The family of this 70-nucleotide RNA sequence from Haemonchus placei is "mir-5928 microRNA precursor family". The base pairs follow the family's consensus structure, which was predicted with RNAalifold. Taxonomically the source falls in Haemonchus (Eukaryota, Nematoda, Rhabditina, Rhabditomorpha). A search with the family's covariance model found it, with a score of 59 bits.

[Rfam]
RNA sequence: GGCCCAAAUUCGAAGUAGAUUGGUAGGAUCAGCUGACCAUACUAGUCUACUCUACUUCAAGUUUGCGCCC
Numbered sequence: 001g002g003c004c005c006a007a008a009u010u011c012g013a014a015g016u017a018g019a020u021u022g023g024u025a026g027g028a029u030c031a032g033c034u035g036a037c038c039a040u041a042c043u044a045g046u047c048u049a050c051u052c053u054a055c056u057u058c059a060a061g062u063u064u065g066c067g068c069c070c
Base pairs, nucleotide, nucleotide: 001069002068003067005065006064007063008062009061012058013057014056015055016054017053018047020045021044022043023042024041025040027038029036030035